[Rfam]
RNA: Bacterial RNase P class B
RNA sequence: UGACUGACGUAAUCGCUGCGGUACGUUCGUAUCGUAGAGGAAAGUCCAUGCUCACACGGCCUGAGAUGGCCGUAGUGUUCGUGCUAGUCGAAACAACGAGGCUAGGCAACGGUGACGUUGACGGCGAGAUGAAGUCCUACGGCUUUGCUACGGAUGAGCAUCUCUGAACAGUGCCACAGAGACGAGGCCGCCUGGAAACAGUCGGAUUGGAACGCGGUAAACCCCACGAGUGAGAAACCCAAAUUUAGGUAGGGGCACUUUUCGCCGCGGAAAUGAACGUAGGCGAAGAGGCGGGCUGCGCGAGCAGUCAUGCAGACAGAUGAUUACACCCGAGUACGAGGCGCGAGCCGUUUGAGUACAGAGGAACAGAACAUGGCUUAUGACG
Numbered sequence: 001u002g003a004c005u006g007a008c009g010u011a012a013u014c015g016c017u018g019c020g021g022u023a024c025g026u027u028c029g030u031a032u033c034g035u036a037g038a039g040g041a042a043a044g045u046c047c048a049u050g051c052u053c054a055c056a057c058g059g060c061c062u063g064a065g066a067u068g069g070c071c072g073u074a075g076u077g078u079u080c081g082u083g084c085u086a087g088u089c090g091a092a093a094c095a096a097c098g099a100g101g102c103u104a105g106g107c108a109a110c111g112g113u114g115a116c117g118u119u120g121a122c123g124g125c126g127a128g129a130u131g132a133a134g135u136c137c138u139a140c141g142g143c144u145u146u147g148c149u150a151c152g153g154a155u156g157a158g159c160a161u162c163u164c165u166g167a168a169c170a171g172u173g174c175c176a177c178a179g180a181g182a183c184g185a186g187g188c189c190g191c192c193u194g195g196a197a198a199c200a201g202u203c204g205g206a207u208u209g210g211a212a213c214g215c216g217g218u219a220a221a222c223c224c225c226a227c228g229a230g231u232g233a234g235a236a237a238c239c240c241a242a243a244u245u246u247a248g249g250u251a252g253g254g255g256c257a258c259u260u261u262u263c264g265c266c267g268c269g270g271a272a273a274u275g276a277a278c279g280u281a282g283g284c285g286a287a288g289a290g291g292c293g294g295g296c297u298g299c300g301c302g303a304g305c306a307g308u309c310a311u312g313c314a315g316a317c318a319g320a321u322g323a324u325u326a327c328a329c330c331c332g333a334g335u336a337c338g339a340g341g342c343g344c345g346a347g348c349c350g351u352u353u354g355a356g357u358a359c360a361g362a363g364g365a366a367c368a369g370a371a372c373a374u375g376g377c378u379u380a381u382g383a384c385g
Base pairs, nucleotide, nucleotide: 004385007381009327010326011325012324013323014322016037017036018035019034020033021032042379043378044377046376047375048374049373050372051234052233053232054231055230056073057072058071059070060069061068079229080228081227082226083225084105085104086103087102088101089100106122107120108119109118110117111116123224124223126164127163128162129161134155135154136153137152141149142148143147171222172221173218174217175216188205189204190203192201193200194199238254239253240252258290259289260288261287262286263285264284291313292312293311294309295308296307297306298305299304329364330363334359335358336357337356